Rfam assigns this 52-nucleotide RNA from Parvibaculum sedimenti to the family "ffh sRNA". It scores 47 bits against the family's covariance model. The organism belongs to Parvibaculum, within Bacteria. The family's consensus secondary structure is taken from published work.

RNA sequence: UUGAGCCCGGGUCAACAUCCGCCGGCGAUAUUCGCUCGCGGGUGCGUUUCUG
Dot-bracket structure: ...............(((((((..((((...))))..)))))))........